RNA sequence: UACCUAUGGUACUUUACCUAAGUUUUGUCAUUUGUAUAUGGACAAAACUUAGGUAAAGUACCAUAGGUAC
Numbered sequence: 001u002a003c004c005u006a007u008g009g010u011a012c013u014u015u016a017c018c019u020a021a022g023u024u025u026u027g028u029c030a031u032u033u034g035u036a037u038a039u040g041g042a043c044a045a046a047a048c049u050u051a052g053g054u055a056a057a058g059u060a061c062c063a064u065a066g067g068u069a070c
Stems, first nucleotide, its partner, number of pairs: 003067010015055009025045003028041003
RNA: mir-239 microRNA precursor family
Organism: Lupinus albus